[Rfam]
Shown here is a 155-nucleotide RNA, a member of the family "c-di-AMP riboswitch aptamer (ydaO/yuaA leader)". A search with the family's covariance model found it, with a score of 106 bits. Rfam links the family to the GO terms cyclic-di-AMP binding and regulation of gene expression.

RNA sequence: UAUCAAUAAUCGCUUAAUCCUAUAAGUAGGAGCGGGGGACCCAUGAAAGAUGUCAAAUUUGACUUGGGGUGAAUCAAACGUUUUUUGCGUUUGUAGGGCUAAUCUCUUUUGCCCGAAUCCGACAGCUAACCUCGUCAGCGUUGAAGGGAUGAACA
Numbered sequence: 001u002a003u004c005a006a007u008a009a010u011c012g013c014u015u016a017a018u019c020c021u022a023u024a025a026g027u028a029g030g031a032g033c034g035g036g037g038g039a040c041c042c043a044u045g046a047a048a049g050a051u052g053u054c055a056a057a058u059u060u061g062a063c064u065u066g067g068g069g070u071g072a073a074u075c076a077a078a079c080g081u082u083u084u085u086u087g088c089g090u091u092u093g094u095a096g097g098g099c100u101a102a103u104c105u106c107u108u109u110u111g112c113c114c115g116a117a118u119c120c121g122a123c124a125g126c127u128a129a130c131c132u133c134g135u136c137a138g139c140g141u142u143g144a145a146g147g148g149a150u151g152a153a154c155a
Base pairs, nucleotide, nucleotide: 011140012139013138014137018031019030020029032135033134034133035132036131037130042066043065067120068119069118075093076092077091078090096114097113098112099111